The family of this 131-nucleotide RNA from Microcaecilia unicolor is "Small nucleolar RNA SNORA29". The base pairs follow the family's consensus structure, which was predicted with PFOLD. By type it is an H/ACA-box small nucleolar RNA. The literature on the family includes a 2001 paper in EMBO J by Huttenhofer et al., "RNomics: an experimental approach that identifies 201 candidates for novel, small, non-messenger RNAs in mouse". The source organism's lineage runs through Eukaryota, Bilateria, Gnathostomata, Euteleostomi and Microcaecilia. Clan: SNORA20 clan. About the family: ACA29 is a member of the H/ACA class of snoRNA that guide the sites of modification of uridines to pseudouridines. Gene Ontology terms of the family: RNA processing and nucleolus.
RNA sequence: CUUCCCAUUUUAGUACCGCUUUUUCGAUUUACAGAAUGAGUGGCUAUGCUAAUGGGAUAGAGAAAUAGUUGCCAUAGUCUGAAGGAGAAAACGGAUGUUUUGUCCUAAAUGAAAUGGCAAGACAAAAUUUU
Numbered sequence: 001c002u003u004c005c006c007a008u009u010u011u012a013g014u015a016c017c018g019c020u021u022u023u024u025c026g027a028u029u030u031a032c033a034g035a036a037u038g039a040g041u042g043g044c045u046a047u048g049c050u051a052a053u054g055g056g057a058u059a060g061a062g063a064a065a066u067a068g069u070u071g072c073c074a075u076a077g078u079c080u081g082a083a084g085g086a087g088a089a090a091a092c093g094g095a096u097g098u099u100u101u102g103u104c105c106u107a108a109a110u111g112a113a114a115u116g117g118c119a120a121g122a123c124a125a126a127a128u129u130u131u
Stems, first nucleotide, its partner, number of pairs: 004056004016043004071118004089106001